[Rfam]
RNA sequence: GCCCAAUUUCGCACGUGCCUGUGGUCGCGUGCCGGUCGGUGGGCAUCCGGGCAAGAGACCGGACAGCCGCCCGAGGGAGACUUCCCUCGACACCCCUGACCGGCAGCCGGAGGCGAAACCGGCGCACCUCGCUCUCAGCGGGGAACGCGACUUAAAGCAACGACGACACGGGCUUUU
Numbered sequence: 001g002c003c004c005a006a007u008u009u010c011g012c013a014c015g016u017g018c019c020u021g022u023g024g025u026c027g028c029g030u031g032c033c034g035g036u037c038g039g040u041g042g043g044c045a046u047c048c049g050g051g052c053a054a055g056a057g058a059c060c061g062g063a064c065a066g067c068c069g070c071c072c073g074a075g076g077g078a079g080a081c082u083u084c085c086c087u088c089g090a091c092a093c094c095c096c097u098g099a100c101c102g103g104c105a106g107c108c109g110g111a112g113g114c115g116a117a118a119c120c121g122g123c124g125c126a127c128c129u130c131g132c133u134c135u136c137a138g139c140g141g142g143g144a145a146c147g148c149g150a151c152u153u154a155a156a157g158c159a160a161c162g163a164c165g166a167c168a169c170g171g172g173c174u175u176u177u
Stems, first nucleotide, its partner, number of pairs: 001173004009163003016159003023152008031104009113132004133144004
The family of this 177-nucleotide sequence from Salinarimonas ramus is "Alphaproteobacterial sRNA ar45". The literature on the family includes a 2012 paper in RNA Biol by del Val et al., "A survey of sRNA families in alpha-proteobacteria".